Background:
The record is a 69-nucleotide RNA sequence from Oncorhynchus kisutch, which matches "miR-430 microRNA precursor family" in Rfam. Clan: mir-290 clan. NCBI's taxonomy places the organism under Eukaryota, Vertebrata, Osteoglossocephalai, Euteleosteomorpha, Oncorhynchus.
[Rfam]
Nucleotides: 069
Stems, first nucleotide, its partner, number of pairs: 004065002007062005013056001015054003018050006025043003
Number, partner (000 for none) and nucleotide at each position: 001000a002000c003000a004065g005064c006000a007062a008061c009060c010059c011058c012000a013056a014000c015054a016053a017052a018050a019049g020048c021047a022046u023045u024000g025043a026042c027041u028000g029000g030000u031000u032000u033000g034000g035000u036000c037000c038000u039000g040000c041027a042026g043025u044000a045023a046022g047021u048020g049019c050018u051000u052017u053016u054015u055000a056013u057000u058011g059010g060009g061008g062007u063000a064005g065004c066000u067000g068000u069000u